[Rfam]
About this RNA
The family of this 360-nucleotide sequence from Brevibacterium ravenspurgense is "Bacterial RNase P class A". Rfam classes the family as a ribozyme. A search with the family's covariance model found it, with a score of 303 bits. The organism belongs to Brevibacterium, within Bacteria. Ribonuclease P (RNase P) is a ubiquitous endoribonuclease, found in archaea, bacteria and eukarya as well as chloroplasts and mitochondria.
RNA sequence: ACAGGCCACCAGACGGUCGCGUUCGGGCCUCGUGCCCGGCCGAGGAAAGUCCGGGCUCCGCAGAGCGCGGUGGUGGCUAACAGCCACCCGGGGAAACCCGCGGGAAAGUGCCGCAGAAAGCUAAACCGCCAGCGUGCUGGUAAGGGUGAAAAGGUGGUGUAAGAGACCACCAGGGCCCGCGGUGACGCGGGCCGCUGGGUAAACCCCACCGGGAGCAAGAUCGUGCAGACGGCUAUACGGCUGCUCGUCGUGCCGUCGGGUGGAUUGCUUGAGGCCUGCAGCAAUGCAGGUCCUAGACAGAUGACCGUCGUCCAGGCUUCCGCCUGGGAACAGAACCCGGCUUAUCGGUGGCCUGUCCCU
Numbered sequence: 001a002c003a004g005g006c007c008a009c010c011a012g013a014c015g016g017u018c019g020c021g022u023u024c025g026g027g028c029c030u031c032g033u034g035c036c037c038g039g040c041c042g043a044g045g046a047a048a049g050u051c052c053g054g055g056c057u058c059c060g061c062a063g064a065g066c067g068c069g070g071u072g073g074u075g076g077c078u079a080a081c082a083g084c085c086a087c088c089c090g091g092g093g094a095a096a097c098c099c100g101c102g103g104g105a106a107a108g109u110g111c112c113g114c115a116g117a118a119a120g121c122u123a124a125a126c127c128g129c130c131a132g133c134g135u136g137c138u139g140g141u142a143a144g145g146g147u148g149a150a151a152a153g154g155u156g157g158u159g160u161a162a163g164a165g166a167c168c169a170c171c172a173g174g175g176c177c178c179g180c181g182g183u184g185a186c187g188c189g190g191g192c193c194g195c196u197g198g199g200u201a202a203a204c205c206c207c208a209c210c211g212g213g214a215g216c217a218a219g220a221u222c223g224u225g226c227a228g229a230c231g232g233c234u235a236u237a238c239g240g241c242u243g244c245u246c247g248u249c250g251u252g253c254c255g256u257c258g259g260g261u262g263g264a265u266u267g268c269u270u271g272a273g274g275c276c277u278g279c280a281g282c283a284a285u286g287c288a289g290g291u292c293c294u295a296g297a298c299a300g301a302u303g304a305c306c307g308u309c310g311u312c313c314a315g316g317c318u319u320c321c322g323c324c325u326g327g328g329a330a331c332a333g334a335a336c337c338c339g340g341c342u343u344a345u346c347g348g349u350g351g352c353c354u355g356u357c358c359c360u
Base pairs, nucleotide, nucleotide: 001356002355003354004353005352006351007350008349009348010347011345012309013308014307015306016305017304018303020042021041023039024038025037026036027035028034047343048342049341051340052339053338054337055336056215057214058213059212063246064245065244066243068211069210070209071208072207073087074086075085076084077083088102089100090099091098092097103206104205108204109203110200111199112198126145127144128141129140130139131138132137153171154170155169156168157167158166173195174193175192176191177190178189179188180187181186219266220265221264222263228257229256230255231254232253233252237251238250239249240248241247273292274291275290276289277288278287279286280285